Record summary:
The family of this 303-nucleotide sequence from [Pythium] brassicae is "Metazoan signal recognition particle RNA". For this family Rfam cites "Towards the structure of the mammalian signal recognition particle" (Wild et al., Curr Opin Struct Biol, 2002). The base pairs follow the family's consensus structure, which is taken from published work. NCBI's taxonomy places the organism under Eukaryota, Stramenopiles, Peronosporomycetes, Pythiaceae, Globisporangium. It scores 133 bits against the family's covariance model. By type it is a non-coding RNA gene. Its family is annotated with SRP-dependent cotranslational protein targeting to membrane, signal sequence recognition and signal recognition particle, endoplasmic reticulum targeting in the Gene Ontology.
RNA sequence: GCCGGGUUGAGUGGCGUCAACUUGUAACAGGAAGUUUCUGCCUGGGAAGUGGGUAAUUGCGGAGUGCAGUAUGCAGUGAGUGUGUCACUAUCCGCGGGGUGUGGAUGGCGCGUCCGUUUCAAACCAGGAGUGGACAUUGUCACGUUGUGCGUAGGCGAGCGUGACGAGGUCACUAAGGAAGGGUGCACCGCCCCAGGCUGGUUGACAGAGCAGGGAAAAGCCCUCGCUCUUGGUAGUGGAAGGAUCUCGUGCCAGAAUCCCGACGUGCACACUCUCGGCUAUCAGCUGUGCUUCAAAGCACUU
Numbered sequence: 001g002c003c004g005g006g007u008u009g010a011g012u013g014g015c016g017u018c019a020a021c022u023u024g025u026a027a028c029a030g031g032a033a034g035u036u037u038c039u040g041c042c043u044g045g046g047a048a049g050u051g052g053g054u055a056a057u058u059g060c061g062g063a064g065u066g067c068a069g070u071a072u073g074c075a076g077u078g079a080g081u082g083u084g085u086c087a088c089u090a091u092c093c094g095c096g097g098g099g100u101g102u103g104g105a106u107g108g109c110g111c112g113u114c115c116g117u118u119u120c121a122a123a124c125c126a127g128g129a130g131u132g133g134a135c136a137u138u139g140u141c142a143c144g145u146u147g148u149g150c151g152u153a154g155g156c157g158a159g160c161g162u163g164a165c166g167a168g169g170u171c172a173c174u175a176a177g178g179a180a181g182g183g184u185g186c187a188c189c190g191c192c193c194c195a196g197g198c199u200g201g202u203u204g205a206c207a208g209a210g211c212a213g214g215g216a217a218a219a220g221c222c223c224u225c226g227c228u229c230u231u232g233g234u235a236g237u238g239g240a241a242g243g244a245u246c247u248c249g250u251g252c253c254a255g256a257a258u259c260c261c262g263a264c265g266u267g268c269a270c271a272c273u274c275u276c277g278g279c280u281a282u283c284a285g286c287u288g289u290g291c292u293u294c295a296a297a298g299c300a301c302u303u
Base pairs, nucleotide, nucleotide: 002046003045004023005022006021007020008019009018010017028044029043030042051303052302053301054300057297058296061294062293063292064291065290066289067285069283073279074278078276079275080274082272083271084270085269090266091265096261097260098259099258100257102255106254107253108252109251110250111249112248114243115242117241118240119239120238121237123234124233125232126231127230128229129228130227131226133171134170135169137167138166139165140164141163142162143161144160145159146158148157149156150155173177180224181223182222183221184220191215192214193213198208199207200206